[Rfam]
RNA sequence: AGGUGGCAAUGAUGAUAAUUUUACUCAUUCACCUGACAAUAUCUGAAGGUGUUCAGUCACUACCUCAUCUGAUGCCAUCU
Numbered sequence: 001a002g003g004u005g006g007c008a009a010u011g012a013u014g015a016u017a018a019u020u021u022u023a024c025u026c027a028u029u030c031a032c033c034u035g036a037c038a039a040u041a042u043c044u045g046a047a048g049g050u051g052u053u054c055a056g057u058c059a060c061u062a063c064c065u066c067a068u069c070u071g072a073u074g075c076c077a078u079c080u
Stems, first nucleotide, its partner, number of pairs: 002079006